[Rfam]
RNA sequence: CAUUUAUCUAGAGUCAGGGGAGGAAUCUGGUCCAAUGAUCCUGCAGCAACCGCUUGUCACAAGCAAGGUGCUCAUUCCAGCAGACUUUUUGUCUGAAAGAUGAAGC
Number, nucleotide and partner (000 for none) at each position: 001c000002a000003u104004u103005u102006a101007u100008c099009u000010a000011g000012a000013g044014u000015c043016a042017g041018g040019g000020g000021a000022g033023g032024a031025a000026u000027c080028u079029g078030g077031u024032c023033c022034a000035a000036u000037g000038a000039u000040c018041c017042u016043g015044c013045a072046g071047c070048a069049a000050c068051c067052g064053c063054u062055u061056g000057u000058c000059a000060c000061a055062a054063g053064c052065a000066a000067g051068g050069u048070g047071c046072u045073c000074a000075u000076u098077c030078c029079a028080g027081c095082a094083g093084a092085c091086u000087u000088u000089u000090u000091g085092u084093c083094u082095g081096a000097a000098a076099g008100a007101u006102g005103a004104a003105g000106c000

A member of the RNA family "SAM riboswitch aptamer (S box leader)" from Guptibacillus hwajinpoensis, 106 nucleotides long. Rfam links the family to the GO term regulation of gene expression. Taxonomically the source falls in Guptibacillus (Bacteria, Bacilli, Caryophanales, Guptibacillaceae). The family's consensus secondary structure is taken from published work.